[Rfam]
RNA sequence: CCGGGCCGAUGCGGACGCCCGUUCAGGCGGUCCUCCGUCCAAGUCCGC
Numbered sequence: 001c002c003g004g005g006c007c008g009a010u011g012c013g014g015a016c017g018c019c020c021g022u023u024c025a026g027g028c029g030g031u032c033c034u035c036c037g038u039c040c041a042a043g044u045c046c047g048c
Stems, first nucleotide, its partner, number of pairs: 002021005011048005026039005